[Rfam]
RNA sequence: CCAAAACUAGUCAUUUGUCAUUUUCUAAUUAGUUCUUAGUGUGUUAAAAUUUUAUAAGAACCAAUUAAAAAAUAACAAGUGGUUAGUUUUAG
Number, nucleotide and partner (000 for none) at each position: 001c000002c000003a090004a089005a088006a087007c086008u085009a084010g083011u082012c081013a080014u079015u078016u077017g076018u075019c000020a073021u072022u071023u070024u069025c000026u067027a066028a065029u064030u063031a000032g061033u060034u059035c058036u057037u056038a055039g000040u000041g000042u000043g000044u000045u000046a000047a000048a000049a000050u000051u000052u000053u000054a000055u038056a037057a036058g035059a034060a033061c032062c000063a030064a029065u028066u027067a026068a000069a024070a023071a022072a021073u020074a000075a018076c017077a016078a015079g014080u013081g012082g011083u010084u009085a008086g007087u006088u005089u004090u003091a000092g000
Description: This 92-nucleotide sequence from Prunus persica belongs to the Rfam family "MIR6288 microRNA precursor family". Taxonomically the source falls in Prunus (Eukaryota, Streptophyta, Tracheophyta, Gunneridae). It scores 82 bits against the family's covariance model.